[Rfam]
Nucleotides: 070
Base pairs, nucleotide, nucleotide: 008029009028010027011026012025013024014023046064047063048062049061050060051059052058
Number, partner (000 for none) and nucleotide at each position: 001000a002000a003000c004000c005000c006000g007000c008029g009028c010027a011026u012025g013024u014023c015000c016000g017000g018000g019000u020000c021000a022000u023014g024013a025012c026011a027010u028009g029008u030000a031000c032000c033000u034000c035000c036000c037000u038000g039000u040000u041000g042000g043000a044000c045000u046064g047063c048062c049061g050060g051059g052058c053000c054000u055000u056000u057000g058052g059051c060050c061049c062048g063047g064046c065000u066000u067000u068000u069000u070000u